[Rfam]
A member of the RNA family "anti ponA RNA" from Zestomonas carbonaria, 294 nucleotides long. The match comes from Rfam's covariance-model search (181 bits). The source organism's lineage runs through Bacteria, Pseudomonadati, Pseudomonadota, Gammaproteobacteria and Zestomonas. Gene Ontology term of the family: response to antibiotic. About the family: Transcribed antisense to the penicillin-binding protein 1A gene called ponA. It was identified by RNAseq and the expression was validated by 5' and 3' RACE experiments. AsponA expression was up or down regulated under different antibiotic stress. Due to its location it may be able to prevent the transcription or translation of the opposite gene. Study by Wurtzel et al. and Ferrara et al. also detected its expression.
RNA sequence: AAAAUUGUCGUCUUCAGCCGACAGUAGCGCGUUGAUGAAAUCUGGGGGAAUAUCCGCGAAGCGGAUGGGGGAACGCCGCAUCUCGCCGAACUCUGCGAUCAGCUUGGCAUCGUUGCUGUAGACCCGGAGGGGGAUCUGCAACUGGAUGCUGCGGAGCGAAUCGACCGAGGGGAGGUUGGGGGCGAGGUAGAGGUAGGCACCGCUGAAACUGAGUAACAGUCCACAAAAAACGGUGACGCAAAACCACCAGACAAACUUCAGCAGGCGCAUCGAGACUCGCGGAUUUCCAGAUAA
Numbered sequence: 001a002a003a004a005u006u007g008u009c010g011u012c013u014u015c016a017g018c019c020g021a022c023a024g025u026a027g028c029g030c031g032u033u034g035a036u037g038a039a040a041u042c043u044g045g046g047g048g049a050a051u052a053u054c055c056g057c058g059a060a061g062c063g064g065a066u067g068g069g070g071g072a073a074c075g076c077c078g079c080a081u082c083u084c085g086c087c088g089a090a091c092u093c094u095g096c097g098a099u100c101a102g103c104u105u106g107g108c109a110u111c112g113u114u115g116c117u118g119u120a121g122a123c124c125c126g127g128a129g130g131g132g133g134a135u136c137u138g139c140a141a142c143u144g145g146a147u148g149c150u151g152c153g154g155a156g157c158g159a160a161u162c163g164a165c166c167g168a169g170g171g172g173a174g175g176u177u178g179g180g181g182g183c184g185a186g187g188u189a190g191a192g193g194u195a196g197g198c199a200c201c202g203c204u205g206a207a208a209c210u211g212a213g214u215a216a217c218a219g220u221c222c223a224c225a226a227a228a229a230a231c232g233g234u235g236a237c238g239c240a241a242a243a244c245c246a247c248c249a250g251a252c253a254a255a256c257u258u259c260a261g262c263a264g265g266c267g268c269a270u271c272g273a274g275a276c277u278c279g280c281g282g283a284u285u286u287c288c289a290g291a292u293a294a
Stems, first nucleotide, its partner, number of pairs: 011171005017165001019163003025045001027043001029041001047084002050081002054078001057075002062069001086095001088093001102157003105153002108148004115142001117140006123133003176290006187278001197268002200265002202262006213239002217235002221232001